[Rfam]
RNA sequence: GGAGCAAAUUGUAUGGCAGCGCGGAAGGAACCUUUCGUGAGGAAAGUCCGAGCAUCACAGGACAGGAUAGCUGCUAACGGCAGCCGGAGGCGACUCUAGGGCUAGUGCAACAGAAAGAAACCGCCGCUUUUGCGGUAAGGAUGGAAAGGCGAGGUAAGAGCUCACCGGCGUAUGCGAGAGCAUGCGGCCAUGUAAACCCUAUCCGAUGCAACACCGACUGGGAUGGAUUCGUUGGUCCGACGGUCCCGACGGGUGGCGAUGAGCGUUUCAGGGCGACCUGGCGCCAAGAUAGAUUGUCAUAUUCAACAGAACUCGGCUUAUAGAUUUGCUCUUUUC
Numbered sequence: 001g002g003a004g005c006a007a008a009u010u011g012u013a014u015g016g017c018a019g020c021g022c023g024g025a026a027g028g029a030a031c032c033u034u035u036c037g038u039g040a041g042g043a044a045a046g047u048c049c050g051a052g053c054a055u056c057a058c059a060g061g062a063c064a065g066g067a068u069a070g071c072u073g074c075u076a077a078c079g080g081c082a083g084c085c086g087g088a089g090g091c092g093a094c095u096c097u098a099g100g101g102c103u104a105g106u107g108c109a110a111c112a113g114a115a116a117g118a119a120a121c122c123g124c125c126g127c128u129u130u131u132g133c134g135g136u137a138a139g140g141a142u143g144g145a146a147a148g149g150c151g152a153g154g155u156a157a158g159a160g161c162u163c164a165c166c167g168g169c170g171u172a173u174g175c176g177a178g179a180g181c182a183u184g185c186g187g188c189c190a191u192g193u194a195a196a197c198c199c200u201a202u203c204c205g206a207u208g209c210a211a212c213a214c215c216g217a218c219u220g221g222g223a224u225g226g227a228u229u230c231g232u233u234g235g236u237c238c239g240a241c242g243g244u245c246c247c248g249a250c251g252g253g254u255g256g257c258g259a260u261g262a263g264c265g266u267u268u269c270a271g272g273g274c275g276a277c278c279u280g281g282c283g284c285c286a287a288g289a290u291a292g293a294u295u296g297u298c299a300u301a302u303u304c305a306a307c308a309g310a311a312c313u314c315g316g317c318u319u320a321u322a323g324a325u326u327u328g329c330u331c332u333u334u335u336c
Stems, first nucleotide, its partner, number of pairs: 001332010011321001012301007020039008044319003048316005053208004060238004065204005070084005085099001086097004100199002105197002107193003121140002123136005148166002151163003168188001169186007212255004222246001229243005263284004269280004
RNA: Bacterial RNase P class A
Organism: Merdimmobilis hominis